The record is an 85-nucleotide RNA sequence from Rahnella aquatilis, which matches "CyaR/Rye RNA" in Rfam. From the family's description: This sRNA was originally identified in a large scale screen of E. coli. The organism belongs to Rahnella aquatilis, within Bacteria. A reference for the family is Wassarman et al. (2001), "Identification of novel small RNAs using comparative genomics and microarrays", Genes Dev. By type it is a small RNA.
[Rfam]
RNA sequence: UUUACUUCGAAUGCAAAAUAAAGCACCGGACUACACUAGGAACCACCUCCUUGGCCAGCUCAAUCUCCCUUGAGCUGGCUUUUCU
Numbered sequence: 001u002u003u004a005c006u007u008c009g010a011a012u013g014c015a016a017a018a019u020a021a022a023g024c025a026c027c028g029g030a031c032u033a034c035a036c037u038a039g040g041a042a043c044c045a046c047c048u049c050c051u052u053g054g055c056c057a058g059c060u061c062a063a064u065c066u067c068c069c070u071u072g073a074g075c076u077g078g079c080u081u082u083u084c085u
Stems, first nucleotide, its partner, number of pairs: 038051004053080011